[Rfam]
RNA: Y RNA
RNA sequence: GGUUGGUCCAAGUGUAGUGGUAUUUACAACUAAUUGAUCACAACCAGUUAUAGAUUUCUUUGUUCCUUCUCUACUCCCACUACUUCACUUGAACAGCUGUC
Numbered sequence: 001g002g003u004u005g006g007u008c009c010a011a012g013u014g015u016a017g018u019g020g021u022a023u024u025u026a027c028a029a030c031u032a033a034u035u036g037a038u039c040a041c042a043a044c045c046a047g048u049u050a051u052a053g054a055u056u057u058c059u060u061u062g063u064u065c066c067u068u069c070u071c072u073a074c075u076c077c078c079a080c081u082a083c084u085u086c087a088c089u090u091g092a093a094c095a096g097c098u099g100u101c
Stems, first nucleotide, its partner, number of pairs: 001098005007092002010090002014086001016081005028064003032060002